Shown here is a 146-nucleotide RNA from Pacificibacter marinus, a member of the family "FMN riboswitch aptamer (RFN element)". The match comes from Rfam's covariance-model search (120 bits). NCBI's taxonomy places the organism under Bacteria, Pseudomonadota, Rhodobacterales, Roseobacteraceae, Pacificibacter.

RNA sequence: CAUCGUUCUCAGGGCGGGGUGCAAUUCCCCACCGGCGGUGAGCAGGAUUCCUGUAAGCCCGCGAGCGCUUCGUUUUUUGACGAAGGUCAGCAGAUUUGGUGUGAUUCCAAAGCCGACGGUCAUAGUCCGGAUGAAAGAGAGCGGGA
Numbered sequence: 001c002a003u004c005g006u007u008c009u010c011a012g013g014g015c016g017g018g019g020u021g022c023a024a025u026u027c028c029c030c031a032c033c034g035g036c037g038g039u040g041a042g043c044a045g046g047a048u049u050c051c052u053g054u055a056a057g058c059c060c061g062c063g064a065g066c067g068c069u070u071c072g073u074u075u076u077u078u079g080a081c082g083a084a085g086g087u088c089a090g091c092a093g094a095u096u097u098g099g100u101g102u103g104a105u106u107c108c109a110a111a112g113c114c115g116a117c118g119g120u121c122a123u124a125g126u127c128c129g130g131a132u133g134a135a136a137g138a139g140a141g142c143g144g145g146a
Base pairs, nucleotide, nucleotide: 003144004143005142006141007140008139009138010137017029018028019027031126032125033115034114035062036061037060038059057113058112065091066090095111096110097109098108099107117129118128119127